[Rfam]
RNA sequence: AUUAAGUGGUAGGUAUAAGAGUCUGAAAAAACUCAUAAAUUGUGUGUUGUCUAUCAGCUUCAUCUUUUGUAAUACUACGAGAAUGGAGUUAAAUAACAGCACUACAUGU
Numbered sequence: 001a002u003u004a005a006g007u008g009g010u011a012g013g014u015a016u017a018a019g020a021g022u023c024u025g026a027a028a029a030a031a032c033u034c035a036u037a038a039a040u041u042g043u044g045u046g047u048u049g050u051c052u053a054u055c056a057g058c059u060u061c062a063u064c065u066u067u068u069g070u071a072a073u074a075c076u077a078c079g080a081g082a083a084u085g086g087a088g089u090u091a092a093a094u095a096a097c098a099g100c101a102c103u104a105c106a107u108g109u
Base pairs, nucleotide, nucleotide: 044102045101046100047099048098049097056090057089058088059087060086061085063082064081065080066079
RNA: Small nucleolar RNA snoR97